[Rfam]
Shown here is a 184-nucleotide RNA sequence from Alkalihalobacillus trypoxylicola, a member of the family "Lysine riboswitch aptamer".
A search with the family's covariance model found it, with a score of 126 bits.
The organism belongs to Alkalihalobacillus, within Bacteria.
Nucleotides: 184
Base pairs, nucleotide, nucleotide: 006179007178008177009176010175011174016083017082018081019080020079022077023076024075032068033067034066035065036064037063038062087119088118089117090116091115092114093113094112096110097109098108120146121145123143124142125141126140127139128138129137130136148169149168150167151166152165153164154163
Number, partner (000 for none) and nucleotide at each position: 001000a002000g003000u004000g005000a006179g007178g008177g009176u010175a011174g012000a013000g014000g015000c016083g017082c018081a019080a020079a021000c022077u023076u024075c025000a026000a027000g028000a029000g030000u031000a032068a033067g034066u035065a036064u037063g038062u039000u040000a041000a042000a043000a044000a045000g046000g047000a048000u049000g050000a051000g052000c053000u054000u055000u056000u057000a058000u059000g060000a061000u062038g063037c064036a065035u066034a067033c068032u069000a070000a071000a072000a073000g074000g075024g076023g077022a078000u079020u080019u081018u082017g083016c084000c085000g086000a087119a088118g089117c090116u091115a092114a093113a094112u095000u096110a097109a098108a099000a100000c101000a102000c103000u104000c105000a106000u107000c108098u109097u110096u111000u112094g113093u114092u115091u116090a117089g118088c119087u120146g121145g122000g123143a124142c125141u126140g127139u128138a129137u130136u131000g132000a133000a134000u135000a136130a137129g138128u139127a140126c141125a142124g143123u144000a145121c146120u147000g148169u149168c150167a151166u152165a153164u154163a155000g156000c157000a158000u159000u160000g161000g162000c163154u164153a165152u166151a167150u168149g169148g170000a171000g172000g173000g174011c175010u176009a177008u178007c179006u180000c181000a182000c183000g184000c